tRNA: a 74-nucleotide sequence from Methanomethylovorans hollandica. Its family is annotated with triplet codon-amino acid adaptor activity in the Gene Ontology. Rfam classes the family as a transfer RNA. Transfer RNA (tRNA) molecules are approximately 80 nucleotides in length. Lineage of the source: Archaea > Methanobacteriati > Methanosarcinales > Methanosarcinaceae > Methanomethylovorans hollandica. Pairs were carried over by alignment from the consensus structure, which is taken from published work.
[Rfam]
RNA sequence: GGGCCCGUAGCUUAGCCCGGUGGAGCGCACGGCUGAUAACCGUGAGGUCCUGCGUUCGAAUCGCAGCGGGCCCA
Numbered sequence: 001g002g003g004c005c006c007g008u009a010g011c012u013u014a015g016c017c018c019g020g021u022g023g024a025g026c027g028c029a030c031g032g033c034u035g036a037u038a039a040c041c042g043u044g045a046g047g048u049c050c051u052g053c054g055u056u057c058g059a060a061u062c063g064c065a066g067c068g069g070g071c072c073c074a
Stems, first nucleotide, its partner, number of pairs: 001073007010026004028044005050066005